A member of the RNA family "Small nucleolar RNA SNORA28" from Castor canadensis, 128 nucleotides long. A reference for the family is Huttenhofer et al. (2001), "RNomics: an experimental approach that identifies 201 candidates for novel, small, non-messenger RNAs in mouse", EMBO J. Gene Ontology terms of the family: nucleolus and RNA processing. By type it is an H/ACA-box small nucleolar RNA. About the family: ACA28 is a member of the H/ACA class of snoRNA that guide the sites of modification of uridines to pseudouridines. The family has 26 seed sequences and 922 matches in Rfam 15.1. NCBI's taxonomy places the organism under Eukaryota, Eumetazoa, Bilateria, Euteleostomi, Castor.

[Rfam]
RNA sequence: AAGCAACACUCUGUUGCCAAUGAUUGAAAUUGUCUGAUACAAUUUGAGCUUUCUAUAUAGCAAGAAAGCCUAACCUAUUCUGGUGAUUUAAUCUUUAUGAGAUAUGUCAUUAUUUGGGCUUAAACAGU
Numbered sequence: 001a002a003g004c005a006a007c008a009c010u011c012u013g014u015u016g017c018c019a020a021u022g023a024u025u026g027a028a029a030u031u032g033u034c035u036g037a038u039a040c041a042a043u044u045u046g047a048g049c050u051u052u053c054u055a056u057a058u059a060g061c062a063a064g065a066a067a068g069c070c071u072a073a074c075c076u077a078u079u080c081u082g083g084u085g086a087u088u089u090a091a092u093c094u095u096u097a098u099g100a101g102a103u104a105u106g107u108c109a110u111u112a113u114u115u116g117g118g119c120u121u122a123a124a125c126a127g128u
Stems, first nucleotide, its partner, number of pairs: 009048003012041003017036001020033003066121007077113002081109004089102001092099001
Dot-bracket structure: ........((((((..(..(((........)))..)..)))....))).................(((((((....((..((((....(..(......)..)...))))..)).))))))).......